RNA sequence: UCUAAGCUUGGUAAUGUCAGCUUAUGACUCGAGUGAGAGCAUUAAUGUGGCUGGACUAAGGUUUGUCCCGUUCAGGCAGGCCCAGUGGGCAGCGUCUUCUGGCUUGCCCGGUCCAAGUUGGGAGAUGGGCUGCGUGACUGAAGCAAAAGCCUGGGCAACGCGGCUCCUAGAGAGGAGGGCACUGCGUGAGGUUGGUUUCACAGAGCAGUGACAACCUCCCUCUCUCAAAAGUGGACGGAUUACAGGCUAGUGCACCCUUGUCCAAAUUGCCUUGUGGGCCUGGAAAAUCGAACAGCCAUUUUU
Numbered sequence: 001u002c003u004a005a006g007c008u009u010g011g012u013a014a015u016g017u018c019a020g021c022u023u024a025u026g027a028c029u030c031g032a033g034u035g036a037g038a039g040c041a042u043u044a045a046u047g048u049g050g051c052u053g054g055a056c057u058a059a060g061g062u063u064u065g066u067c068c069c070g071u072u073c074a075g076g077c078a079g080g081c082c083c084a085g086u087g088g089g090c091a092g093c094g095u096c097u098u099c100u101g102g103c104u105u106g107c108c109c110g111g112u113c114c115a116a117g118u119u120g121g122g123a124g125a126u127g128g129g130c131u132g133c134g135u136g137a138c139u140g141a142a143g144c145a146a147a148a149g150c151c152u153g154g155g156c157a158a159c160g161c162g163g164c165u166c167c168u169a170g171a172g173a174g175g176a177g178g179g180c181a182c183u184g185c186g187u188g189a190g191g192u193u194g195g196u197u198u199c200a201c202a203g204a205g206c207a208g209u210g211a212c213a214a215c216c217u218c219c220c221u222c223u224c225u226c227a228a229a230a231g232u233g234g235a236c237g238g239a240u241u242a243c244a245g246g247c248u249a250g251u252g253c254a255c256c257c258u259u260g261u262c263c264a265a266a267u268u269g270c271c272u273u274g275u276g277g278g279c280c281u282g283g284a285a286a287a288u289c290g291a292a293c294a295g296c297c298a299u300u301u302u303u
Stems, first nucleotide, its partner, number of pairs: 002039002004023005010017001028037003044302002047299007056290001062282001065279002068277004074272004079262002082260001084258002087256001089255001093252002099250008108238002111236005118228008127166009138155002141152001143150002167172001174219005185210003192203003
RNA: Plant signal recognition particle RNA
Organism: Actinidia chinensis